[Rfam]
RNA sequence: ACAACCGUGGUUCGCAACCCUCCCACGCUAAAAAACUAAGGCAUA
Numbered sequence: 001a002c003a004a005c006c007g008u009g010g011u012u013c014g015c016a017a018c019c020c021u022c023c024c025a026c027g028c029u030a031a032a033a034a035a036c037u038a039a040g041g042c043a044u045a
Stems, first nucleotide, its partner, number of pairs: 006027005016037001
Description: A member of the RNA family "PreQ1 (pre queuosine) riboswitch aptamer" from Lonepinella koalarum, 45 nucleotides long. About the family: This family is a bacterial riboswitch that binds to the metabolite preQ1, an intermediate in the biosynthesis of the modified nucleoside queuosine from GTP. One example of this riboswitch is located in the leader of the Bacillus subtilis ykvJKLM (queCDEF) operon which encodes four genes necessary for queuosine production. Lineage of the source: Bacteria > Pseudomonadati > Pseudomonadota > Pasteurellaceae > Lonepinella. Its family is annotated with queuosine biosynthetic process in the Gene Ontology.